[Rfam]
RNA: mir-17 microRNA precursor family
Organism: Oreochromis niloticus
RNA sequence: UCAGUAGUAUUAAAGUGCUUAUAGUGCAGGUAGUCUUCUUACUGUUUAAAUUCUACUGCAAUGUGAGCACUUCAAGUACUCCUAG
Dot-bracket structure: ...(.((.(((.(((((((((((.(((.(((((...................)))))))).)))))))))))..))).)).)...